[Rfam]
RNA sequence: CUUCCCAUUUAUUUGCUGCUAUAGUCUGUCAGUGACGUGAGCAGUUAUACGCAUGGGAUAAAGGAACUUGGACCACUGUAAACUGAGAUGAAGUCACCGUUUCAUCUCACCUGCGUGGUCUGGACAGUG
Numbered sequence: 001c002u003u004c005c006c007a008u009u010u011a012u013u014u015g016c017u018g019c020u021a022u023a024g025u026c027u028g029u030c031a032g033u034g035a036c037g038u039g040a041g042c043a044g045u046u047a048u049a050c051g052c053a054u055g056g057g058a059u060a061a062a063g064g065a066a067c068u069u070g071g072a073c074c075a076c077u078g079u080a081a082a083c084u085g086a087g088a089u090g091a092a093g094u095c096a097c098c099g100u101u102u103c104a105u106c107u108c109a110c111c112u113g114c115g116u117g118g119u120c121u122g123g124a125c126a127g128u129g
Base pairs, nucleotide, nucleotide: 003058004057005056006055007054008053015045016044017043018042019041020040022037025035026034068123069122070121071120072119073118074117075116077115078114079113080112085108086107087106088105089104090103091102092101093100094099
The family of this 129-nucleotide sequence from Galemys pyrenaicus is "Small nucleolar RNA SNORA20". About the family: ACA20 is a member of the H/ACA class of snoRNA that guide the sites of modification of uridines to pseudouridines. Its Rfam clan is "SNORA20 clan". The match comes from Rfam's covariance-model search (107 bits).